This 37-nucleotide RNA from Methanococcus vannielii belongs to the Rfam family "CRISPR RNA direct repeat element". Pairs were carried over by alignment from the consensus structure, which was predicted with WAR. Rfam's curators put it in the seed alignment. Rfam links the family to the GO term defense response.

[Rfam]
RNA sequence: GUUUCAAUGCUUGUUCUAAUGCAUUAUGCUCUUUUAC
Numbered sequence: 001g002u003u004u005c006a007a008u009g010c011u012u013g014u015u016c017u018a019a020u021g022c023a024u025u026a027u028g029c030u031c032u033u034u035u036a037c
Base pairs, nucleotide, nucleotide: 006033007032009029010028012023013022014021